The family of this 125-nucleotide RNA sequence from Corynebacterium lipophiloflavum is "atpB RNA". Lineage of the source: Bacteria > Bacillati > Actinomycetota > Actinomycetes > Corynebacterium lipophiloflavum. The family's RNA type in Rfam is cis-regulatory element.

RNA sequence: CUGUCCCGCGGUCGCUGAUGUGCGACGGAGUCCGCCGCGGAGACAGUCUUCUUGAAGACGUCCAUCGCACCGCAUUUCAACCGUUAUGCGGCCCGAGAACGGGAGAGAACGCUGAGCGUUACAAC
Numbered sequence: 001c002u003g004u005c006c007c008g009c010g011g012u013c014g015c016u017g018a019u020g021u022g023c024g025a026c027g028g029a030g031u032c033c034g035c036c037g038c039g040g041a042g043a044c045a046g047u048c049u050u051c052u053u054g055a056a057g058a059c060g061u062c063c064a065u066c067g068c069a070c071c072g073c074a075u076u077u078c079a080a081c082c083g084u085u086a087u088g089c090g091g092c093c094c095g096a097g098a099a100c101g102g103g104a105g106a107g108a109a110c111g112c113u114g115a116g117c118g119u120u121a122c123a124a125c
Stems, first nucleotide, its partner, number of pairs: 001046005006040006070091006078083001